Notes
Rfam assigns this 44-nucleotide RNA sequence from Bacillus mesophilus to the family "PreQ1 (pre queuosine) riboswitch aptamer". Rfam's curators write: This family is a bacterial riboswitch that binds to the metabolite preQ1, an intermediate in the biosynthesis of the modified nucleoside queuosine from GTP. One example of this riboswitch is located in the leader of the Bacillus subtilis ykvJKLM (queCDEF) operon which encodes four genes necessary for queuosine production. PreQ1 binding to the riboswitch aptamer is thought to induce premature transcription termination within the leader to down-regulate expression of these genes. The base pairs follow the family's consensus structure. Lineage of the source: Bacteria > Bacillota > Bacilli > Caryophanales > Bacillus. Rfam links the family to the GO term queuosine biosynthetic process.
[Rfam]
RNA sequence: AAACGAGAGGUUCGAAAACUCCCUCUAUAAAAAACUAUAGGUCA
Numbered sequence: 001a002a003a004c005g006a007g008a009g010g011u012u013c014g015a016a017a018a019c020u021c022c023c024u025c026u027a028u029a030a031a032a033a034a035c036u037a038u039a040g041g042u043c044a
Stems, first nucleotide, its partner, number of pairs: 006026005016036001